[Rfam]
Shown here is a 46-nucleotide sequence from Methylovirgula sp. 4M-Z18, a member of the family "ctRNA". The family's consensus secondary structure is taken from published work. A reference for the family is Venkova-Canova et al. (2004), "Two discrete elements are required for the replication of a repABC plasmid: an antisense RNA and a stem-loop structure", Mol Microbiol. Rfam's curators write: This family represents a group of ctRNAs (or counter-transcribed RNAs) from p42d and related plasmids. ctRNAs are small, highly structured, antisense sequences which are involved in negative regulation.

RNA sequence: AGAGAGGCUUCCGUGACGGAAACGUUAUGGGGGCCUUUUCUUUUGC
Numbered sequence: 001a002g003a004g005a006g007g008c009u010u011c012c013g014u015g016a017c018g019g020a021a022a023c024g025u026u027a028u029g030g031g032g033g034c035c036u037u038u039u040c041u042u043u044u045g046c
Stems, first nucleotide, its partner, number of pairs: 005036008015026004